[Rfam]
RNA: Small nucleolar RNA SNORD60
RNA sequence: AGCCUGUGAUGAAUUCAAUUUCUGACACCUCGUAUGAAAACUGCAUACAUGUGCAGUCUGAUUACACUAUAAAACUGAGGCUG
Numbered sequence: 001a002g003c004c005u006g007u008g009a010u011g012a013a014u015u016c017a018a019u020u021u022c023u024g025a026c027a028c029c030u031c032g033u034a035u036g037a038a039a040a041c042u043g044c045a046u047a048c049a050u051g052u053g054c055a056g057u058c059u060g061a062u063u064a065c066a067c068u069a070u071a072a073a074a075c076u077g078a079g080g081c082u083g
Base pairs, nucleotide, nucleotide: 001082002081003080004079040057041056042055043054044053045052046051